[Rfam]
RNA sequence: GAUUAUUGAGGAUAGGAUAGGCAUCUAUCGCACCCAACUUCAGGGUAUAAAGAGAUGUGGGAUACGCCUCCCCACCAAUAAUC
Numbered sequence: 001g002a003u004u005a006u007u008g009a010g011g012a013u014a015g016g017a018u019a020g021g022c023a024u025c026u027a028u029c030g031c032a033c034c035c036a037a038c039u040u041c042a043g044g045g046u047a048u049a050a051a052g053a054g055a056u057g058u059g060g061g062a063u064a065c066g067c068c069u070c071c072c073c074a075c076c077a078a079u080a081a082u083c
Stems, first nucleotide, its partner, number of pairs: 001083008011029005019069004031052001032046004057075005